[Rfam]
Nucleotides: 103
Stems, first nucleotide, its partner, number of pairs: 001102003005098009017086002022083004027078002
Number, partner (000 for none) and nucleotide at each position: 001102c002101u003100u004000g005098a006097c007096u008095u009094g010093a011092g012091c013090u014000u015000a016000a017086c018085g019000c020000u021000a022083a023082c024081a025080a026000a027078g028077c029000a030000a031000a032000u033000u034000u035000g036000a037000u038000u039000u040000g041000c042000a043000a044000a045000a046000u047000g048000a049000u050000u051000u052000c053000u054000u055000g056000u057000c058000g059000g060000a061000a062000a063000u064000c065000g066000u067000u068000g069000u070000a071000a072000a073000a074000a075000a076000a077028g078027u079000u080025u081024u082023g083022u084000u085018c086017g087000u088000u089000u090013g091012g092011c093010u094009c095008g096007a097006g098005u099000u100003a101002a102001g103000a
mir-375 microRNA precursor family: a 103-nucleotide RNA from Leptotrombidium deliense. It scores 48 bits against the family's covariance model. Its family is annotated with miRNA-mediated post-transcriptional gene silencing and RISC complex in the Gene Ontology. Taxonomically the source falls in Leptotrombidium (Eukaryota, Bilateria, Arthropoda, Acari). Pairs were carried over by alignment from the consensus structure, which was predicted with RNAalifold. For this family Rfam cites "The developmental miRNA profiles of zebrafish as determined by small RNA cloning" (Chen et al., Genes Dev, 2005).